Notes: The family of this 88-nucleotide sequence from Drosophila albomicans is "mir-7 microRNA precursor family". Rfam describes the family as follows. This family represents the microRNA (miRNA) precursor mir-7. The family has 132 seed sequences and 2,589 matches in Rfam 15.1. The family's consensus secondary structure was predicted with PFOLD. The organism belongs to Drosophila, within Eukaryota.
[Rfam]
RNA sequence: AAAUGCUUUCCGUAUGGAAGACUAGUGAUUUUGUUGUUUGGUCUUUGGUAAUAACAAUAAAUCCCUUGUCUUCUUAUGGCGUGCAUUU
Numbered sequence: 001a002a003a004u005g006c007u008u009u010c011c012g013u014a015u016g017g018a019a020g021a022c023u024a025g026u027g028a029u030u031u032u033g034u035u036g037u038u039u040g041g042u043c044u045u046u047g048g049u050a051a052u053a054a055c056a057a058u059a060a061a062u063c064c065c066u067u068g069u070c071u072u073c074u075u076a077u078g079g080c081g082u083g084c085a086u087u088u
Stems, first nucleotide, its partner, number of pairs: 002087005008081001010079005016073002019071004025065001027063005033058006